[Rfam]
RNA sequence: UUGGCCGGAAGAAGACGGUUGGGAGAAACUCAAAGGCCUAUUUAUGGCCUACAAAACUCCCGGGAAGGUCUGAGAGAAGGCCCUUUCGUGAGAUCUAGGAGAUCUUCUAGUGUCCUUAUAGAAGAGAGGCUGUAGAAGAAGGUGUUUCCCCCGAGUGGGUUUGGAAACGGCCUCGGCCAGCAAUCACCUAUACAAGCUAAGUGCGAUCGUCAUACCAACACAAUUCAGACUAGUCUUCGGCCAA
Numbered sequence: 001u002u003g004g005c006c007g008g009a010a011g012a013a014g015a016c017g018g019u020u021g022g023g024a025g026a027a028a029c030u031c032a033a034a035g036g037c038c039u040a041u042u043u044a045u046g047g048c049c050u051a052c053a054a055a056a057c058u059c060c061c062g063g064g065a066a067g068g069u070c071u072g073a074g075a076g077a078a079g080g081c082c083c084u085u086u087c088g089u090g091a092g093a094u095c096u097a098g099g100a101g102a103u104c105u106u107c108u109a110g111u112g113u114c115c116u117u118a119u120a121g122a123a124g125a126g127a128g129g130c131u132g133u134a135g136a137a138g139a140a141g142g143u144g145u146u147u148c149c150c151c152c153g154a155g156u157g158g159g160u161u162u163g164g165a166a167a168c169g170g171c172c173u174c175g176g177c178c179a180g181c182a183a184u185c186a187c188c189u190a191u192a193c194a195a196g197c198u199a200a201g202u203g204c205g206a207u208c209g210u211c212a213u214a215c216c217a218a219c220a221c222a223a224u225u226c227a228g229a230c231u232a233g234u235c236u237u238c239g240g241c242c243a244a
Stems, first nucleotide, its partner, number of pairs: 001244004007238003013213001018208001021061005034050005070228005079178004091105005106125003111120003126174007148159002
Dot-bracket structure: ((((..(((...[....[..(((((........(((((.......)))))......)))))........(((((....((((........(((((.....)))))(((..(((....)))..)))(((((((...............((........))........))))))))))).............................]....]..........))))).......)))..))))
Rfam assigns this 244-nucleotide RNA sequence from Caenorhabditis remanei to the family "Nuclear RNase P". Taxonomically the source falls in Caenorhabditis (Eukaryota, Protostomia, Rhabditoidea, Rhabditidae). On this family, see Frank et al., RNA 2000: "Phylogenetic-comparative analysis of the eukaryal ribonuclease P RNA".